[Rfam]
RNA: SAM (S-adenosyl methionine) riboswitch aptamer
Organism: Arthrobacter sp. Bz4
RNA sequence: GGUCACGAGUGCCAGCACGGAGCGGAACACCCCGCUCCACCAAGCCCCGGCUUGCUGGACGGCAACCCUCCUUCGCGGUGGGGUGCCCCGGGUGACGACCAGGCGGCGGACAGGGUGUCCGGCGCAAGCGCGGAUU
Numbered sequence: 001g002g003u004c005a006c007g008a009g010u011g012c013c014a015g016c017a018c019g020g021a022g023c024g025g026a027a028c029a030c031c032c033c034g035c036u037c038c039a040c041c042a043a044g045c046c047c048c049g050g051c052u053u054g055c056u057g058g059a060c061g062g063c064a065a066c067c068c069u070c071c072u073u074c075g076c077g078g079u080g081g082g083g084u085g086c087c088c089c090g091g092g093u094g095a096c097g098a099c100c101a102g103g104c105g106g107c108g109g110a111c112a113g114g115g116u117g118u119c120c121g122g123c124g125c126a127a128g129c130g131c132g133g134a135u136u
Stems, first nucleotide, its partner, number of pairs: 001100004009060001012058005021052002061087003066083003070078002103125003107121006